[Rfam]
RNA: DUF3800-VII RNA
RNA sequence: CACCACGCAGCGCCAGGUUUGUAGAGGGUCCGGUUAGCCGGACCAGUCGCAGAUGCGAUGGGCUCCUCGAACUGGGGCGUGGUGGGUU
Numbered sequence: 001c002a003c004c005a006c007g008c009a010g011c012g013c014c015a016g017g018u019u020u021g022u023a024g025a026g027g028g029u030c031c032g033g034u035u036a037g038c039c040g041g042a043c044c045a046g047u048c049g050c051a052g053a054u055g056c057g058a059u060g061g062g063c064u065c066c067u068c069g070a071a072c073u074g075g076g077g078c079g080u081g082g083u084g085g086g087u088u
Stems, first nucleotide, its partner, number of pairs: 001084007011076001013075004022070001024068003027044007047058004